[Rfam]
Rfam assigns this 121-nucleotide RNA from Suricata suricatta to the family "U5 spliceosomal RNA". A search with the family's covariance model found it, with a score of 58 bits. By type it is a spliceosomal small nuclear RNA. From the family's description: U5 RNA is a component of both types of known spliceosome. The precise function of this molecule is unknown, though it is known that the 5' loop is required for splice site selection and p220 binding, and that both the 3' stem-loop and the Sm site are important for Sm protein binding and cap methylation. On this family, see Zwieb, Nucleic Acids Res 1997: "The uRNA database".
RNA sequence: AUACUCUUGUUUCUCUUCAGAUCAUAUAAAUCUUUCUCCUUUUACUAAAGAUUUCUGUGGAGAGGAGCAAGAUGGUGGGAGACAAGUGAGAGAAGUAUUUUCCUUUUCUGUCAUAGGAAAC
Numbered sequence: 001a002u003a004c005u006c007u008u009g010u011u012u013c014u015c016u017u018c019a020g021a022u023c024a025u026a027u028a029a030a031u032c033u034u035u036c037u038c039c040u041u042u043u044a045c046u047a048a049a050g051a052u053u054u055c056u057g058u059g060g061a062g063a064g065g066a067g068c069a070a071g072a073u074g075g076u077g078g079g080a081g082a083c084a085a086g087u088g089a090g091a092g093a094a095g096u097a098u099u100u101u102c103c104u105u106u107u108c109u110g111u112c113a114u115a116g117g118a119a120a121c
Stems, first nucleotide, its partner, number of pairs: 004081003009068011028054008104120005